The family of this 78-nucleotide RNA sequence from Brugia malayi is "mir-9/mir-79 microRNA precursor family". The literature on the family includes a 2001 paper in Science by Lagos-Quintana et al., "Identification of novel genes coding for small expressed RNAs".

RNA sequence: UGCAACUUUACUUUGGUUAUCUAGCUGUAUGAGUAAGUUACUGGCUUCAUAAAGCUAGGUUACCAAAGCUAAGCACAA
Number, nucleotide and partner (000 for none) at each position: 001u078002g000003c000004a000005a000006c000007u072008u071009u000010a000011c068012u067013u066014u065015g064016g063017u062018u000019a060020u059021c058022u057023a056024g055025c054026u053027g000028u051029a050030u049031g048032a047033g046034u000035a000036a000037g000038u000039u000040a000041c000042u000043g000044g000045c000046u033047u032048c031049a030050u029051a028052a000053a026054g025055c024056u023057a022058g021059g020060u019061u000062a017063c016064c015065a014066a013067a012068g011069c000070u000071a008072a007073g000074c000075a000076c000077a000078a001
Rfam 15.1 lists 5,647 matches to the family in 934 species. Gene Ontology terms of the family: RISC complex and miRNA-mediated post-transcriptional gene silencing.